[Rfam]
A member of the RNA family "tp2" from Citrobacter portucalensis, 113 nucleotides long. On this family, see Rivas et al., Curr Biol 2001: "Computational identification of noncoding RNAs in E. coli by comparative genomics". The family's RNA type in Rfam is small RNA. Lineage of the source: Bacteria > Pseudomonadota > Enterobacteriaceae > Citrobacter > Citrobacter freundii complex. The sequence is in the family's curated seed alignment.
RNA sequence: GGUAUUCCUUAUCUAUCUAAUACGUUGAGUUAUCUGGAACCUGUCCCAUUACGUUCUCGCCAGAGAGCGUAAUAAGACAGGUUCUGCGUUUAGUUGCCGCGCACUUUAUAUGG
Number, nucleotide and partner (000 for none) at each position: 001g098002g097003u096004a095005u000006u000007c000008c000009u000010u000011a000012u000013c000014u000015a000016u000017c000018u000019a000020a000021u000022a089023c088024g087025u086026u000027g000028a000029g000030u000031u000032a000033u000034c000035u000036g085037g084038a083039a082040c081041c080042u079043g078044u077045c076046c000047c000048a073049u072050u071051a070052c069053g000054u067055u066056c065057u064058c063059g000060c000061c000062a000063g058064a057065g056066a055067g054068c000069g052070u051071a050072a049073u048074a000075a000076g045077a044078c043079a042080g041081g040082u039083u038084c037085u036086g025087c024088g023089u022090u000091u000092a000093g000094u000095u004096g003097c002098c001099g000100c000101g000102c000103a000104c000105u000106u000107u000108a000109u000110a000111u000112g000113g000